[Rfam]
RNA sequence: GACAAGCGAUGAAACGGGAGGUUGCGGUUCUUUGAAACCGGUUUUUCCGCGGAGUGAGUCCGAUUCAAGAAACCGGGCGGCA
Numbered sequence: 001g002a003c004a005a006g007c008g009a010u011g012a013a014a015c016g017g018g019a020g021g022u023u024g025c026g027g028u029u030c031u032u033u034g035a036a037a038c039c040g041g042u043u044u045u046u047c048c049g050c051g052g053a054g055u056g057a058g059u060c061c062g063a064u065u066c067a068a069g070a071a072a073c074c075g076g077g078c079g080g081c082a
Base pairs, nucleotide, nucleotide: 015049016048018047019046020045021044025040026039027038028037029036060080061079062078064077065076066075
RNA: S10-Clostridia ribosomal protein leader
Organism: Lachnospiraceae bacterium MD329